[Rfam]
RNA sequence: GUAGGUGUUCAGUGGCAGUAUUGUAGCCAAUGAGGUUUAUCCGAGGUGCGAUUAUUGCUAAUUGAAACAAAUAAUUGUUUAAUUAACAAAUUCAUGGCUAUUGAAAGCAUGCAUGCAUG
Numbered sequence: 001g002u003a004g005g006u007g008u009u010c011a012g013u014g015g016c017a018g019u020a021u022u023g024u025a026g027c028c029a030a031u032g033a034g035g036u037u038u039a040u041c042c043g044a045g046g047u048g049c050g051a052u053u054a055u056u057g058c059u060a061a062u063u064g065a066a067a068c069a070a071a072u073a074a075u076u077g078u079u080u081a082a083u084u085a086a087c088a089a090a091u092u093c094a095u096g097g098c099u100a101u102u103g104a105a106a107g108c109a110u111g112c113a114u115g116c117a118u119g
Stems, first nucleotide, its partner, number of pairs: 020052005026047003034042002077098003080094001081092004108119004

Rfam assigns this 119-nucleotide RNA sequence from Leptonychotes weddellii to the family "U4 spliceosomal RNA". The family's RNA type in Rfam is spliceosomal small nuclear RNA. The match comes from Rfam's covariance-model search (57 bits). Pairs were carried over by alignment from the consensus structure, which is taken from published work.